[Rfam]
RNA sequence: GGUUGUUCUCAGGGCGGGGUGAAAGUCCCCACCGGCGGUAAGAGCUUCGGCUCAAGCCCGCGAGCGUCUUUCGGCCGAUCUGCCGAAAGGGUCAGCAGAUCCGGUGCAACUCCGGAGCCGACGGUCACAGUCCGGAUGAAAGAGAAUGAGC
Numbered sequence: 001g002g003u004u005g006u007u008c009u010c011a012g013g014g015c016g017g018g019g020u021g022a023a024a025g026u027c028c029c030c031a032c033c034g035g036c037g038g039u040a041a042g043a044g045c046u047u048c049g050g051c052u053c054a055a056g057c058c059c060g061c062g063a064g065c066g067u068c069u070u071u072c073g074g075c076c077g078a079u080c081u082g083c084c085g086a087a088a089g090g091g092u093c094a095g096c097a098g099a100u101c102c103g104g105u106g107c108a109a110c111u112c113c114g115g116a117g118c119c120g121a122c123g124g125u126c127a128c129a130g131u132c133c134g135g136a137u138g139a140a141a142g143a144g145a146a147u148g149a150g151c
Stems, first nucleotide, its partner, number of pairs: 003149008017029003031131002033120002035061004056118002064096002100116005122134003
This 151-nucleotide RNA from Rhizobium tibeticum belongs to the Rfam family "FMN riboswitch aptamer (RFN element)". The family's consensus secondary structure is taken from published work. It scores 115 bits against the family's covariance model.